[Rfam]
RNA sequence: AAUAGUAGCAGCAAAAGUCCGGUGAGAAUCUGGACCGCCGUAAGGGCCAGGGUUCCUCGGCAAUGAUUGUCAGCCGAGGGUUAGUCGAUCCUAAGUCGUACCGUAAUUCGAGUACGACAAAAGGGAAACAGGUUAAUAUUCCUGUACCAUUCAGCCAUACCGCGCAAGCGGGCCAACGCAUCCGGGUAGGUCAGGCGGCGUACCCGCGCCGUCCAAGCGCUCAAGCCGGUGGAGAACCGUAAUGGUGAGAAGCUGGUGAAGGCGUUAUGGCGUAAGCUGGCUCAACCGGGUGCCCGUGAAAAGGCGGCUGAAUGUCCGUACCGAGAACCGACACAGGUGCCCCUAGUUGAGAAGACUAAGGCGUGU
Numbered sequence: 001a002a003u004a005g006u007a008g009c010a011g012c013a014a015a016a017g018u019c020c021g022g023u024g025a026g027a028a029u030c031u032g033g034a035c036c037g038c039c040g041u042a043a044g045g046g047c048c049a050g051g052g053u054u055c056c057u058c059g060g061c062a063a064u065g066a067u068u069g070u071c072a073g074c075c076g077a078g079g080g081u082u083a084g085u086c087g088a089u090c091c092u093a094a095g096u097c098g099u100a101c102c103g104u105a106a107u108u109c110g111a112g113u114a115c116g117a118c119a120a121a122a123g124g125g126a127a128a129c130a131g132g133u134u135a136a137u138a139u140u141c142c143u144g145u146a147c148c149a150u151u152c153a154g155c156c157a158u159a160c161c162g163c164g165c166a167a168g169c170g171g172g173c174c175a176a177c178g179c180a181u182c183c184g185g186g187u188a189g190g191u192c193a194g195g196c197g198g199c200g201u202a203c204c205c206g207c208g209c210c211g212u213c214c215a216a217g218c219g220c221u222c223a224a225g226c227c228g229g230u231g232g233a234g235a236a237c238c239g240u241a242a243u244g245g246u247g248a249g250a251a252g253c254u255g256g257u258g259a260a261g262g263c264g265u266u267a268u269g270g271c272g273u274a275a276g277c278u279g280g281c282u283c284a285a286c287c288g289g290g291u292g293c294c295c296g297u298g299a300a301a302a303g304g305c306g307g308c309u310g311a312a313u314g315u316c317c318g319u320a321c322c323g324a325g326a327a328c329c330g331a332c333a334c335a336g337g338u339g340c341c342c343c344u345a346g347u348u349g350a351g352a353a354g355a356c357u358a359a360g361g362c363g364u365g366u
Stems, first nucleotide, its partner, number of pairs: 017035006036363004044342004050322002055079006064072002086318002090124002095118006102110002128145005148314008172305003178293008189282005194213006217265004226256005236246003271276001328337002344358004
Description
The record is a 366-nucleotide part of an RNA from Candidatus Methanoperedens nitratireducens, which matches "Archaeal large subunit ribosomal RNA" in Rfam. Rfam 15.1 lists 2,955 matches to the family in 1,139 species.